ZMP/ZTP riboswitch aptamer (pfl RNA motif): an 84-nucleotide sequence from Devosia soli. The source organism's lineage runs through Bacteria, Pseudomonadati, Pseudomonadota, Alphaproteobacteria and Devosia. The match comes from Rfam's covariance-model search (64 bits).

RNA sequence: GCGCGUUCGCGCAACUGGCGAGAAAAGAUGGGGAACCAUCGGGGAACGCGAACGUCACGAGAGCCGCUCGCCUGGGCAACCCAU
Number, nucleotide and partner (000 for none) at each position: 001g000002c000003g055004c054005g053006u052007u051008c050009g049010c048011g047012c000013a000014a000015c043016u042017g072018g071019c070020g069021a068022g000023a000024a000025a000026a000027g000028a039029u038030g037031g036032g000033g000034a000035a000036c031037c030038a029039u028040c000041g000042g016043g015044g000045a000046a000047c011048g010049c009050g008051a007052a006053c005054g004055u003056c000057a000058c000059g000060a000061g000062a000063g077064c076065c075066g000067c000068u021069c020070g019071c018072c017073u000074g000075g065076g064077c063078a000079a000080c000081c000082c000083a000084u000